Rfam assigns this 90-nucleotide RNA from Oryza glumipatula to the family "MIR1846 microRNA precursor family". Gene Ontology terms of the family: RISC complex and miRNA-mediated post-transcriptional gene silencing. The organism belongs to Oryza, within Eukaryota. Pairs were carried over by alignment from the consensus structure, which was predicted with RNAalifold. The family has 5 seed sequences and 66 matches in Rfam 15.1. A search with the family's covariance model found it, with a score of 80 bits.
[Rfam]
RNA sequence: CCCGAUGAGCCGCUGGAUCUCCCAGUGAGGAGGUCGGGGCUGCCGGAUCCGGUGACCCCGGUCUCCUCGCUGGCGGAUCCGGUGCCCAGA
Numbered sequence: 001c002c003c004g005a006u007g008a009g010c011c012g013c014u015g016g017a018u019c020u021c022c023c024a025g026u027g028a029g030g031a032g033g034u035c036g037g038g039g040c041u042g043c044c045g046g047a048u049c050c051g052g053u054g055a056c057c058c059c060g061g062u063c064u065c066c067u068c069g070c071u072g073g074c075g076g077a078u079c080c081g082g083u084g085c086c087c088a089g090a
Stems, first nucleotide, its partner, number of pairs: 003089001007087001009085002012083009022073002025070015041054005